A member of the RNA family "Selenocysteine transfer RNA" from Maridesulfovibrio salexigens, 90 nucleotides long.
A search with the family's covariance model found it, with a score of 82 bits.
Pairs were carried over by alignment from the consensus structure, which is taken from published work.
Rfam links the family to the GO term triplet codon-amino acid adaptor activity.
RNA sequence: GGAAGUGUAUCGUAACCGGUGUUGCGCCUGGACUUCAAAUCCAGUGGACGGGUUAACCCUCGUCGGUAGGUUCGACUCCUAUACACUUCC
Numbered sequence: 001g002g003a004a005g006u007g008u009a010u011c012g013u014a015a016c017c018g019g020u021g022u023u024g025c026g027c028c029u030g031g032a033c034u035u036c037a038a039a040u041c042c043a044g045u046g047g048a049c050g051g052g053u054u055a056a057c058c059c060u061c062g063u064c065g066g067u068a069g070g071u072u073c074g075a076c077u078c079c080u081a082u083a084c085a086c087u088u089c090c
Base pairs, nucleotide, nucleotide: 001090002089003088004087005086006085007084008083009082011026012025013024014023015022016021028044029043030042031041032040047064048063049062050061051060067081068080069079070078